[Rfam]
A member of the RNA family "U2 spliceosomal RNA" from Acrobeloides nanus, 190 nucleotides long. It scores 135 bits against the family's covariance model. On this family, see Zwieb, Nucleic Acids Res 1997: "The uRNA database". Its family is annotated with pre-mRNA branch point binding, mRNA branch site recognition and U2 snRNP in the Gene Ontology. U2 is a small nuclear RNA (snRNA) component of the spliceosome (involved in pre-mRNA splicing). Complementary binding between U2 snRNA (in an area lying towards the 5' end but 3' to hairpin I) and the branchpoint sequence (BPS) of the intron results the bulging out of an unpaired adenosine, on the BPS, which initiates a nucleophilic attack at the intronic 5' splice site, thus starting the first of two transesterification reactions that mediate splicing. By type it is a spliceosomal small nuclear RNA.
RNA sequence: AUCGCUUCUCGGCCGAUGGCUAAGAUUGAAGUGUAGUAUCUGUUCUUAUCAGCUUAAUCUCUGAUAUGAGUCCUAUUGGGCUCUUUUGAGAUUACCUGAUUUUUGGGACCUGGCGGGUUGCGAGGGCUUGCUCUCCACCUGCCGCGGGUCGGCCCGGUAUUGCACCUACCUCGGGAUCGGCCCAAGUCCC
Dot-bracket structure: ......(((.((((...)))).))).....................((((((........)))))).((((((....))))))............................(((((((....((((....))))..)))))))..((((((.(((((.............)))))..)))))).......